Rfam assigns this 108-nucleotide RNA from Asparagus officinalis to the family "Small nucleolar RNA snoR97". Rfam links the family to the GO terms RNA processing and nucleolus. It is annotated as an H/ACA-box small nucleolar RNA. NCBI's taxonomy places the organism under Eukaryota, Spermatophyta, Mesangiospermae, Asparagoideae, Asparagus. A search with the family's covariance model found it, with a score of 87 bits. For this family Rfam cites "Experimental RNomics: identification of 140 candidates for small non-messenger RNAs in the plant Arabidopsis thaliana" (Marker et al., Curr Biol, 2002).
[Rfam]
RNA sequence: AUUAACUAAAUUUGCAUGGAGGCUGAAUCAACUCGGAUAGUUUGGUGUUGUCAUCAGCUUCUUCUCUUGUAUUUCACGAGCUUGGAGUUAAAUAACAGCACUACAUUU
Number, nucleotide and partner (000 for none) at each position: 001a000002u000003u000004a000005a000006c000007u000008a000009a000010a000011u000012u000013u000014g000015c000016a000017u000018g000019g000020a000021g000022g000023c000024u000025g000026a000027a000028u000029c000030a000031a000032c000033u000034c000035g000036g000037a000038u000039a000040g000041u000042u000043u000044g102045g101046u100047g099048u098049u097050g096051u000052c000053a000054u000055c000056a089057g088058c087059u086060u085061c084062u000063u000064c080065u079066c078067u000068u000069g000070u000071a000072u000073u000074u000075c000076a000077c000078g066079a065080g064081c000082u000083u000084g061085g060086a059087g058088u057089u056090a000091a000092a000093u000094a000095a000096c050097a049098g048099c047100a046101c045102u044103a000104c000105a000106u000107u000108u000